[Rfam]
RNA sequence: UAGAAGAAUGUAGAUAAGGGAAGUCGGCAAAAUAGAUCCGUAACUUCGGGAUAAGGAUUGGCUCUGAGGGCCGGGCGUACGGGCCCUUUGGCGGGAAGUGUGGCGUUUUGGGGACUGCUUAGCUUUGCUUUGACGGGCCCACAUGAUGCCUCAGUUCCCUGCCAUUGGAGGUUUUACCGUGUCUGUUCGCGGAGAACGGCCAACUCAGAACUGGAGCGGACAAGGGGAAUCCGACUGUUUAAUUAAAACAAAGCAUUGCGAUGUCCCCAAAGGGUUUUGACGCAAUGUGAUUUCUGCCCAGUGCUCUGAAUGUCAAUGUGAUGAAAUUCAACCAAGCGCGGGUAAACGGCGGGAGUAACUAUGACUCUCUUAAGGUAGCCAAAUGCCUCGUCAUCUAAUUAGUGACGCGCAUGAAUGGAUUAACGAGAUUCCCACUGUCCCUAUCUACCAUCUAGCGAAACCACAGCCAAGGGAACGGGCUUGGCAAA
Numbered sequence: 001u002a003g004a005a006g007a008a009u010g011u012a013g014a015u016a017a018g019g020g021a022a023g024u025c026g027g028c029a030a031a032a033u034a035g036a037u038c039c040g041u042a043a044c045u046u047c048g049g050g051a052u053a054a055g056g057a058u059u060g061g062c063u064c065u066g067a068g069g070g071c072c073g074g075g076c077g078u079a080c081g082g083g084c085c086c087u088u089u090g091g092c093g094g095g096a097a098g099u100g101u102g103g104c105g106u107u108u109u110g111g112g113g114a115c116u117g118c119u120u121a122g123c124u125u126u127g128c129u130u131u132g133a134c135g136g137g138c139c140c141a142c143a144u145g146a147u148g149c150c151u152c153a154g155u156u157c158c159c160u161g162c163c164a165u166u167g168g169a170g171g172u173u174u175u176a177c178c179g180u181g182u183c184u185g186u187u188c189g190c191g192g193a194g195a196a197c198g199g200c201c202a203a204c205u206c207a208g209a210a211c212u213g214g215a216g217c218g219g220a221c222a223a224g225g226g227g228a229a230u231c232c233g234a235c236u237g238u239u240u241a242a243u244u245a246a247a248a249c250a251a252a253g254c255a256u257u258g259c260g261a262u263g264u265c266c267c268c269a270a271a272g273g274g275u276u277u278u279g280a281c282g283c284a285a286u287g288u289g290a291u292u293u294c295u296g297c298c299c300a301g302u303g304c305u306c307u308g309a310a311u312g313u314c315a316a317u318g319u320g321a322u323g324a325a326a327u328u329c330a331a332c333c334a335a336g337c338g339c340g341g342g343u344a345a346a347c348g349g350c351g352g353g354a355g356u357a358a359c360u361a362u363g364a365c366u367c368u369c370u371u372a373a374g375g376u377a378g379c380c381a382a383a384u385g386c387c388u389c390g391u392c393a394u395c396u397a398a399u400u401a402g403u404g405a406c407g408c409g410c411a412u413g414a415a416u417g418g419a420u421u422a423a424c425g426a427g428a429u430u431c432c433c434a435c436u437g438u439c440c441c442u443a444u445c446u447a448c449c450a451u452c453u454a455g456c457g458a459a460a461c462c463a464c465a466g467c468c469a470a471g472g473g474a475a476c477g478g479g480c481u482u483g484g485c486a487a488a
Stems, first nucleotide, its partner, number of pairs: 001454004010448007018440003035059005044049001060212002063209006069201005075190003079186005085168002089164007096156002099153002102150006108143001111140003115136003119132001121130002213217001225433007232425002236250003253288008265274003292419003296350003301347002303343004308339001311338003319330003351369006370374001390406005467484005
RNA: Eukaryotic large subunit ribosomal RNA, nucleotides 1914 to 2401
Organism: Babesia microti